[Rfam]
RNA sequence: AAAGUAUGAAGGCUUAAUCUAGUCACCUAGAACGGGGGAUUUUUUUUUGGGGUGAAACGCAUACCUUAUGCGUAGGGCUUACACCUUAUGCCCGAAUCCGUCAGCUAACCUCGUAAGCCGAGAAAGGUGAAAAC
Numbered sequence: 001a002a003a004g005u006a007u008g009a010a011g012g013c014u015u016a017a018u019c020u021a022g023u024c025a026c027c028u029a030g031a032a033c034g035g036g037g038g039a040u041u042u043u044u045u046u047u048u049g050g051g052g053u054g055a056a057a058c059g060c061a062u063a064c065c066u067u068a069u070g071c072g073u074a075g076g077g078c079u080u081a082c083a084c085c086u087u088a089u090g091c092c093c094g095a096a097u098c099c100g101u102c103a104g105c106u107a108a109c110c111u112c113g114u115a116a117g118c119c120g121a122g123a124a125a126g127g128u129g130a131a132a133a134c
Stems, first nucleotide, its partner, number of pairs: 011119004018031003032114006042049001050099003058072004075093004